[Rfam]
RNA sequence: AUUCGUUGGAUGAGUGUGAGGUGUUGGAUCAAUUUCACUGAAUCCAAGCCCCAUAUUCAUCAGAGGUUCGU
Numbered sequence: 001a002u003u004c005g006u007u008g009g010a011u012g013a014g015u016g017u018g019a020g021g022u023g024u025u026g027g028a029u030c031a032a033u034u035u036c037a038c039u040g041a042a043u044c045c046a047a048g049c050c051c052c053a054u055a056u057u058c059a060u061c062a063g064a065g066g067u068u069c070g071u
Base pairs, nucleotide, nucleotide: 004066006064007063009061010060011059012058013057014056015055016054017053018052020050021049022048024047025046026045027044028043029042032039